About this RNA:
The family of this 317-nucleotide RNA sequence from Brachypteracias leptosomus is "7SK RNA". By type it is a non-coding RNA gene.

RNA sequence: GGAUAUGAGGGCGAUCUGGCUGCAAACCCACUGAUCACCAGGGUUGAUUUGGCUGAUCUGGCUGGCUAGGUGGAUGUUCCCUUCCUCCCUCACCGUUCCAUAUGCGUCCCUCCCGAAGCUGCGCACUAGGUCAAAGAGGACUACCUUCUUUGAUAAAGGUGUACUGUUCAGUGGUCAAGAGUAUACAGAAACUGCGCUCCCCGCUAGAACCUCCAAAUAAGCUCAAAAACCAUUUCUAGGAGAAUGUAGGGUAGUCAAGCUUCUAAGACUGCAGAUGCAUCCAAGUGAGGCACUGCAGGGGACAGUCUGCUGUUGUU
Numbered sequence: 001g002g003a004u005a006u007g008a009g010g011g012c013g014a015u016c017u018g019g020c021u022g023c024a025a026a027c028c029c030a031c032u033g034a035u036c037a038c039c040a041g042g043g044u045u046g047a048u049u050u051g052g053c054u055g056a057u058c059u060g061g062c063u064g065g066c067u068a069g070g071u072g073g074a075u076g077u078u079c080c081c082u083u084c085c086u087c088c089c090u091c092a093c094c095g096u097u098c099c100a101u102a103u104g105c106g107u108c109c110c111u112c113c114c115g116a117a118g119c120u121g122c123g124c125a126c127u128a129g130g131u132c133a134a135a136g137a138g139g140a141c142u143a144c145c146u147u148c149u150u151u152g153a154u155a156a157a158g159g160u161g162u163a164c165u166g167u168u169c170a171g172u173g174g175u176c177a178a179g180a181g182u183a184u185a186c187a188g189a190a191a192c193u194g195c196g197c198u199c200c201c202c203g204c205u206a207g208a209a210c211c212u213c214c215a216a217a218u219a220a221g222c223u224c225a226a227a228a229a230c231c232a233u234u235u236c237u238a239g240g241a242g243a244a245u246g247u248a249g250g251g252u253a254g255u256c257a258a259g260c261u262u263c264u265a266a267g268a269c270u271g272c273a274g275a276u277g278c279a280u281c282c283a284a285g286u287g288a289g290g291c292a293c294u295g296c297a298g299g300g301g302a303c304a305g306u307c308u309g310c311u312g313u314u315g316u317u
Base pairs, nucleotide, nucleotide: 001099002098003097006092007091008090009089010088011087013084014083018081019080024078025077027064028061029060030059033058034057035056036055038052039051108161109159110158111157113130114129116127118126131153132152133151138149139148140147192259193258197254198253200250201249203247204246211242212241213240214239217237219235220234221233284317285316287313289311290310291309292306293305294304295303
Dot-bracket structure: (((..((((((.((...((....((.((((..((((.((...........))..)))))))..)............)).)).))..))))))....)))........((((.((.(.(.......)).))(((....(((......))).)))...))).)..............................((...((.((.((......((((..(.(((...........))).).))))...)).))..))...))........................((.(.(((((((.......))))..))).)..))